[Rfam]
Notes:
This 88-nucleotide RNA from Desulfosporosinus acididurans belongs to the Rfam family "c-di-GMP-I riboswitch aptamer". The base pairs follow the family's consensus structure, which is taken from published work.
RNA sequence: AUACAUUUAGGGCAAAUUGUUCGAAAGGACAAGACGCAAAGCUAAAGGGUCUAACUUCCAUUGGGAAUAUGACAGCCUAGCUGCAAAC
Numbered sequence: 001a002u003a004c005a006u007u008u009a010g011g012g013c014a015a016a017u018u019g020u021u022c023g024a025a026a027g028g029a030c031a032a033g034a035c036g037c038a039a040a041g042c043u044a045a046a047g048g049g050u051c052u053a054a055c056u057u058c059c060a061u062u063g064g065g066a067a068u069a070u071g072a073c074a075g076c077c078u079a080g081c082u083g084c085a086a087a088c
Stems, first nucleotide, its partner, number of pairs: 012037002017032006040082004046078003049073003056067004

Gene Ontology term of the family: cyclic-di-GMP binding.